Shown here is a 26-nucleotide RNA sequence from Hermetia illucens, a member of the family "L25-Gammaproteobacteria ribosomal protein leader". By type it is a cis-regulatory leader. The base pairs follow the family's consensus structure, which is taken from published work. Lineage of the source: Eukaryota > Arthropoda > Endopterygota > Aparaglossata > Hermetia. For this family Rfam cites "Discovery of 20 novel ribosomal leader candidates in bacteria and archaea" (Eckert and Weinberg, BMC Microbiol, 2020).

RNA sequence: GGUGUCGCUGGGUCGCCUGUGACACU
Numbered sequence: 001g002g003u004g005u006c007g008c009u010g011g012g013u014c015g016c017c018u019g020u021g022a023c024a025c026u
Stems, first nucleotide, its partner, number of pairs: 001026008010017002